[Rfam]
RNA sequence: ACAGGCCUCAGACCAGUACCGGUCUGUGGCCUGGGGGUUGAGGACCCCUGCUCUAGGCUGGUACUGCUGAUGCUUAA
Numbered sequence: 001a002c003a004g005g006c007c008u009c010a011g012a013c014c015a016g017u018a019c020c021g022g023u024c025u026g027u028g029g030c031c032u033g034g035g036g037g038u039u040g041a042g043g044a045c046c047c048c049u050g051c052u053c054u055a056g057g058c059u060g061g062u063a064c065u066g067c068u069g070a071u072g073c074u075u076a077a
Stems, first nucleotide, its partner, number of pairs: 003075004008070004014066013028052003033049007
Shown here is a 77-nucleotide sequence from Homo sapiens, a member of the family "mir-645 microRNA precursor family". Rfam links the family to the GO terms RISC complex and miRNA-mediated post-transcriptional gene silencing.